[Rfam]
Shown here is a 131-nucleotide RNA from Crocuta crocuta, a member of the family "Small nucleolar RNA SNORA38".
Pairs were carried over by alignment from the consensus structure, which was predicted with RNAfold.
Gene Ontology terms of the family: RNA processing, Cajal body and nucleolus.
Rfam classes the family as an H/ACA-box small nucleolar RNA.
Taxonomically the source falls in Crocuta (Eukaryota, Bilateria, Sarcopterygii, Tetrapoda).
It scores 139 bits against the family's covariance model.

RNA sequence: UCCUCCCACAAAGGCGUGUCUGUCCUUCCCUGUCUUUAGACACGUAAGAAUUGGAGGAAAAGAAACCUGGAUUUGGAAAAGUCUGAGGUCAGCUUGCUCCCUGCAGGCUCAAGAGCAACCAUCCCACAGAG
Numbered sequence: 001u002c003c004u005c006c007c008a009c010a011a012a013g014g015c016g017u018g019u020c021u022g023u024c025c026u027u028c029c030c031u032g033u034c035u036u037u038a039g040a041c042a043c044g045u046a047a048g049a050a051u052u053g054g055a056g057g058a059a060a061a062g063a064a065a066c067c068u069g070g071a072u073u074u075g076g077a078a079a080a081g082u083c084u085g086a087g088g089u090c091a092g093c094u095u096g097c098u099c100c101c102u103g104c105a106g107g108c109u110c111a112a113g114a115g116c117a118a119c120c121a122u123c124c125c126a127c128a129g130a131g
Base pairs, nucleotide, nucleotide: 002057003056004055005054006053015044016043017042018041019040020039021038069124070123071122073121091109092108093107094106095105096104097103
ACA38 is a member of the H/ACA class of snoRNA that guide the sites of modification of uridines to pseudouridines.